This 158-nucleotide RNA sequence from Vibrio parahaemolyticus belongs to the Rfam family "Vibrio RNA VqmR". It is annotated as a small RNA. Rfam describes the family as follows. Repress the expression of multiple mRNAs including the rtx (repeats in toxin) toxin genes and the vpsT, which is required for biofilm formation. In fact, VqmR which is highly conserved in vibrionaceae, was shown to strongly inhibit biofilm formation through the repression of vpsT gene and could be the link between biofilm formation and quorum sensing. The literature on the family includes a 2015 paper in Proc Natl Acad Sci U S A by Papenfort et al., "Differential RNA-seq of Vibrio cholerae identifies the VqmR small RNA as a regulator of biofilm formation".
[Rfam]
RNA sequence: UCGAGCUCUAGGAUGCAUACGACCCUGAGCUCUCGGUAUCUGAUUGAUACCUCUAACUUACUUAGCAGACCCUCGCUAUGUAAUUUAGAACCUCUUCUACACGUCGACAAGAUUAUAUCUUGUGUUGCCAGCCCGUCUUCAGGCUGGCUUUUUUUUUG
Numbered sequence: 001u002c003g004a005g006c007u008c009u010a011g012g013a014u015g016c017a018u019a020c021g022a023c024c025c026u027g028a029g030c031u032c033u034c035g036g037u038a039u040c041u042g043a044u045u046g047a048u049a050c051c052u053c054u055a056a057c058u059u060a061c062u063u064a065g066c067a068g069a070c071c072c073u074c075g076c077u078a079u080g081u082a083a084u085u086u087a088g089a090a091c092c093u094c095u096u097c098u099a100c101a102c103g104u105c106g107a108c109a110a111g112a113u114u115a116u117a118u119c120u121u122g123u124g125u126u127g128c129c130a131g132c133c134c135g136u137c138u139u140c141a142g143g144c145u146g147g148c149u150u151u152u153u154u155u156u157u158g
Stems, first nucleotide, its partner, number of pairs: 005030004011024002035051006059082003063078004107123006127148007